[Rfam]
RNA sequence: AGUUGCUCAUUCAAUUGAUUAUGACAGCCUGCGCUAAUCCGCAAAUUGUGCCCAUAAUGCCCGAAUGACGCCAAAGCAAGGUGCCUACCGUUCACCAGACCGAUAAUCGUUGCGCAAGCACGUUAUCAAGCAUCGAACGACACGUUGAGUGAGGCACCACCUA
Numbered sequence: 001a002g003u004u005g006c007u008c009a010u011u012c013a014a015u016u017g018a019u020u021a022u023g024a025c026a027g028c029c030u031g032c033g034c035u036a037a038u039c040c041g042c043a044a045a046u047u048g049u050g051c052c053c054a055u056a057a058u059g060c061c062c063g064a065a066u067g068a069c070g071c072c073a074a075a076g077c078a079a080g081g082u083g084c085c086u087a088c089c090g091u092u093c094a095c096c097a098g099a100c101c102g103a104u105a106a107u108c109g110u111u112g113c114g115c116a117a118g119c120a121c122g123u124u125a126u127c128a129a130g131c132a133u134c135g136a137a138c139g140a141c142a143c144g145u146u147g148a149g150u151g152a153g154g155c156a157c158c159a160c161c162u163a
Stems, first nucleotide, its partner, number of pairs: 005071002007068006019057005027051002080158007089139005102127005141151003
RNA: Glm Y RNA activator of glmS mRNA